[Rfam]
RNA: U12 minor spliceosomal RNA
Organism: Phytophthora infestans
RNA sequence: UUGGCUUAAACUCAAUGAGUAAGGAAACUAACGCCCUACCUGACAAGUAGGGCUGCCUAUUGGGUCAAGUGAUCCAUAGGUCUGAAUUUAUGACGGAAAUGGAAUGGCCGUCUGUUUAGUAGCCCGCUACUUUAGGGUGACUAAUUAGGGGGCCGGUCCCCGC
Numbered sequence: 001u002u003g004g005c006u007u008a009a010a011c012u013c014a015a016u017g018a019g020u021a022a023g024g025a026a027a028c029u030a031a032c033g034c035c036c037u038a039c040c041u042g043a044c045a046a047g048u049a050g051g052g053c054u055g056c057c058u059a060u061u062g063g064g065u066c067a068a069g070u071g072a073u074c075c076a077u078a079g080g081u082c083u084g085a086a087u088u089u090a091u092g093a094c095g096g097a098a099a100u101g102g103a104a105u106g107g108c109c110g111u112c113u114g115u116u117u118a119g120u121a122g123c124c125c126g127c128u129a130c131u132u133u134a135g136g137g138u139g140a141c142u143a144a145u146u147a148g149g150g151g152g153c154c155g156g157u158c159c160c161c162g163c
Stems, first nucleotide, its partner, number of pairs: 005023004033053007055081005100162003106158005112152001113147002116144005122138004
Dot-bracket structure: ....((((...........)))).........(((((((.......))))))).(((((.................)))))..................(((...(((((.(((.(((((.((((.........)))).))))).))....).))))).))).